[Rfam]
RNA sequence: AGCUGUGAUGAAUUGCUUUAAUUUCUGAUACCUCGAAUGAAAACUUCUUGUUCAGUCUGAUUAUGCUGAAAGAUUGAGGCUU
Numbered sequence: 001a002g003c004u005g006u007g008a009u010g011a012a013u014u015g016c017u018u019u020a021a022u023u024u025c026u027g028a029u030a031c032c033u034c035g036a037a038u039g040a041a042a043a044c045u046u047c048u049u050g051u052u053c054a055g056u057c058u059g060a061u062u063a064u065g066c067u068g069a070a071a072g073a074u075u076g077a078g079g080c081u082u
Base pairs, nucleotide, nucleotide: 001081002080003079004078043056044055045054
Small nucleolar RNA SNORD60: an 82-nucleotide RNA sequence from Nannospalax galili. For this family Rfam cites "Site-specific ribose methylation of preribosomal RNA: a novel function for small nucleolar RNAs" (Kiss-Laszlo et al., Cell, 1996). Its family is annotated with RNA processing and nucleolus in the Gene Ontology. It is annotated as a C/D-box small nucleolar RNA. Lineage of the source: Eukaryota > Eutheria > Glires > Myomorpha > Nannospalax. The match comes from Rfam's covariance-model search (70 bits). Clan: SNORD60 clan. The base pairs follow the family's consensus structure, which was predicted with PFOLD.